The family of this 232-nucleotide part of an RNA from Hominimerdicola alba is "Bacterial large subunit ribosomal RNA".
On this family, see Yusupov et al., Science 2001: "Crystal structure of the ribosome at 5.5 A resolution".
It scores 2767 bits against the family's covariance model.
Taxonomically the source falls in Hominimerdicola alba (Bacteria, Bacillati, Eubacteriales, Hominimerdicola).
[Rfam]
RNA sequence: GAGUUAUUGUAUGCGGCAAGGUUAAGUGCUUAAGGCACGGAGCCGAAGCGAGAGCGAGUCUGAAUAGGGCGAAUAAGUCGUAUGCAAUAGACCCGAAACCGAGUGACCUAACCAUGUCCAGGCUGAAGUGGAGGUAAAACUCCAUGGAGGGCCGAACCCACGUCCGUUGAAAAGGCCGGGGAUGAGGUGUGGUUAGCGGUGAAAUUCCAAUCGAACUCGGAUAUAGCUGGUU
Numbered sequence: 001g002a003g004u005u006a007u008u009g010u011a012u013g014c015g016g017c018a019a020g021g022u023u024a025a026g027u028g029c030u031u032a033a034g035g036c037a038c039g040g041a042g043c044c045g046a047a048g049c050g051a052g053a054g055c056g057a058g059u060c061u062g063a064a065u066a067g068g069g070c071g072a073a074u075a076a077g078u079c080g081u082a083u084g085c086a087a088u089a090g091a092c093c094c095g096a097a098a099c100c101g102a103g104u105g106a107c108c109u110a111a112c113c114a115u116g117u118c119c120a121g122g123c124u125g126a127a128g129u130g131g132a133g134g135u136a137a138a139a140c141u142c143c144a145u146g147g148a149g150g151g152c153c154g155a156a157c158c159c160a161c162g163u164c165c166g167u168u169g170a171a172a173a174g175g176c177c178g179g180g181g182a183u184g185a186g187g188u189g190u191g192g193u194u195a196g197c198g199g200u201g202a203a204a205u206u207c208c209a210a211u212c213g214a215a216c217u218c219g220g221a222u223a224u225a226g227c228u229g230g231u232u
Stems, first nucleotide, its partner, number of pairs: 005089013020044004026038003048055002058070004092230002095227001099220006108196011119184001121153004128145006157181003161178002164175002198208002